Overview: This 89-nucleotide RNA from Clostridium puniceum belongs to the Rfam family "c-di-GMP-I riboswitch aptamer". The match comes from Rfam's covariance-model search (74 bits). The source organism's lineage runs through Bacteria, Bacillota, Clostridia, Clostridiaceae and Clostridium.
Nucleotides: 089
Base pairs, nucleotide, nucleotide: 012037013036017032018031019030020029021028022027040083041082042081043080045079046078047077048074049073050072055068056067057066058065
Number, partner (000 for none) and nucleotide at each position: 001000u002000a003000u004000u005000g006000a007000u008000a009000a010000u011000a012037g013036c014000a015000c016000a017032c018031u019030u020029a021028u022027c023000u024000a025000a026000a027022g028021g029020u030019a031018a032017g033000g034000u035000c036013g037012c038000a039000a040083a041082g042081c043080u044000a045079u046078g047077g048074g049073u050072c051000u052000a053000a054000a055068g056067a057066a058065a059000g060000u061000u062000a063000u064000u065058u066057u067056u068055c069000u070000a071000u072050g073049a074048u075000u076000g077047c078046c079045a080043g081042g082041u083040u084000g085000c086000c087000a088000a089000u